About this RNA
Rfam assigns this 122-nucleotide sequence from Papaver somniferum to the family "MIR408 microRNA precursor family". Rfam 15.1 lists 299 matches to the family in 186 species. On this family, see Sunkar and Zhu, Plant Cell 2004: "Novel and stress-regulated microRNAs and other small RNAs from Arabidopsis". The base pairs follow the family's consensus structure, which was predicted with WAR.
RNA sequence: AAGUAUUUAUGGAUGGAGACAGGGACGAGGUUGAGCAUGAGAUGGACCACUCAGCACAUAGAGUUUGCUGGUUGCUCCUCCCAUGCACUGCCUCUUCCCUGGCUCCUCUUUUUUCUUUUUCU
Numbered sequence: 001a002a003g004u005a006u007u008u009a010u011g012g013a014u015g016g017a018g019a020c021a022g023g024g025a026c027g028a029g030g031u032u033g034a035g036c037a038u039g040a041g042a043u044g045g046a047c048c049a050c051u052c053a054g055c056a057c058a059u060a061g062a063g064u065u066u067g068c069u070g071g072u073u074g075c076u077c078c079u080c081c082c083a084u085g086c087a088c089u090g091c092c093u094c095u096u097c098c099c100u101g102g103c104u105c106c107u108c109u110u111u112u113u114u115c116u117u118u119u120u121c122u
Stems, first nucleotide, its partner, number of pairs: 016105003020101006028093004033088001035086005041081001045077002